[Rfam]
RNA sequence: GUUUUCGGAUAAUCGCGGCUCGGUCGCAGAACCGGGCUGAGGAAAGUCCAUGCUCGCACAGGCUGAGAUGCUUGUAGUGUUCGUGCUUAACGAAAAAAUAAGUUAAGGUAUUCCCUAUAAGGGGAUAACGGCAGGAAAAACAGCUAAAACGUCAAGUCAUGCUGGAGUACCCUUGAAAGUGCCACAGUGACGAAGUCGAUUUAGAAAUAAAUCGAGUGGAACGGGUAAACCCCUCGAGCGAGCAACCCAAACAUAUGGUAGGGGCACCUUUCUCAAGGAACUGAACUUAGAGAAGGGACAGAGCAAUCUGUAGACAGAUGAUUAUCGUCAGCAUUUUUUGACCUGAGAAGUGCUGAUACAGAACAUGGCUUAUAGAA
Numbered sequence: 001g002u003u004u005u006c007g008g009a010u011a012a013u014c015g016c017g018g019c020u021c022g023g024u025c026g027c028a029g030a031a032c033c034g035g036g037c038u039g040a041g042g043a044a045a046g047u048c049c050a051u052g053c054u055c056g057c058a059c060a061g062g063c064u065g066a067g068a069u070g071c072u073u074g075u076a077g078u079g080u081u082c083g084u085g086c087u088u089a090a091c092g093a094a095a096a097a098a099u100a101a102g103u104u105a106a107g108g109u110a111u112u113c114c115c116u117a118u119a120a121g122g123g124g125a126u127a128a129c130g131g132c133a134g135g136a137a138a139a140a141c142a143g144c145u146a147a148a149a150c151g152u153c154a155a156g157u158c159a160u161g162c163u164g165g166a167g168u169a170c171c172c173u174u175g176a177a178a179g180u181g182c183c184a185c186a187g188u189g190a191c192g193a194a195g196u197c198g199a200u201u202u203a204g205a206a207a208u209a210a211a212u213c214g215a216g217u218g219g220a221a222c223g224g225g226u227a228a229a230c231c232c233c234u235c236g237a238g239c240g241a242g243c244a245a246c247c248c249a250a251a252c253a254u255a256u257g258g259u260a261g262g263g264g265c266a267c268c269u270u271u272c273u274c275a276a277g278g279a280a281c282u283g284a285a286c287u288u289a290g291a292g293a294a295g296g297g298a299c300a301g302a303g304c305a306a307u308c309u310g311u312a313g314a315c316a317g318a319u320g321a322u323u324a325u326c327g328u329c330a331g332c333a334u335u336u337u338u339u340g341a342c343c344u345g346a347g348a349a350g351u352g353c354u355g356a357u358a359c360a361g362a363a364c365a366u367g368g369c370u371u372a373u374a375g376a377a
Base pairs, nucleotide, nucleotide: 004377005376006375007373008326009325010324011323012322013321014320016039017038018037019036020035021034022033023032044371045370046369048368049367050366051365052364053242054241055240056239057238058075059074060073061072062071063070081237082236083235085233086107087106088105089104090103091102108129109127110126111125112124113123114122130232131231133173134172135171141164142163143162144161149157150156179230180229181226182225183224196215197214198213199212200211201210202209203208246263247262248261267297268296269295270294271293272292273291298311299310300309301308302307328356329355330354331353332352333351334350335349336348337347338346339345
Annotation: The record is a 377-nucleotide RNA from Vagococcus acidifermentans, which matches "Bacterial RNase P class B" in Rfam. The source organism's lineage runs through Bacteria, Bacillati, Bacilli, Enterococcaceae and Vagococcus. Its Rfam clan is "RNaseP clan". It is annotated as a ribozyme. It scores 332 bits against the family's covariance model. About the family: Ribonuclease P (RNase P) is a ubiquitous endoribonuclease, found in archaea, bacteria and eukarya as well as chloroplasts and mitochondria. Its best characterised activity is the generation of mature 5'-ends of tRNAs by cleaving the 5'-leader elements of precursor-tRNAs.